Shown here is a 99-nucleotide sequence from Amygdalobacter nucleatus, a member of the family "THF (Tetrahydrofolate) riboswitch aptamer". On this family, see Ames et al., Chem Biol 2010: "A eubacterial riboswitch class that senses the coenzyme tetrahydrofolate". Rfam's curators write: Tetrahydrofolate (THF) riboswitch was first reported for Ames et al. as an RNA motif in 5' untranslated (5'-UTR)regions of folate transport and biosynthesis genes in Firmicutes genomes. Taxonomically the source falls in Amygdalobacter (Bacteria, Bacillati, Eubacteriales, Oscillospiraceae). The match comes from Rfam's covariance-model search (51 bits).
RNA sequence: AACAGUGUAGAUUGUUUGCGUAAAGUGGUUAGGCAAAGAACGUUUGACUAACACGAAGAGAGACUUAGAUCUUUCGCGGUGAAUAAUUGCGUUCCUGUU
Numbered sequence: 001a002a003c004a005g006u007g008u009a010g011a012u013u014g015u016u017u018g019c020g021u022a023a024a025g026u027g028g029u030u031a032g033g034c035a036a037a038g039a040a041c042g043u044u045u046g047a048c049u050a051a052c053a054c055g056a057a058g059a060g061a062g063a064c065u066u067a068g069a070u071c072u073u074u075c076g077c078g079g080u081g082a083a084u085a086a087u088u089g090c091g092u093u094c095c096u097g098u099u
Stems, first nucleotide, its partner, number of pairs: 001099005010088009019078003025054002028052005034046001039093004058075006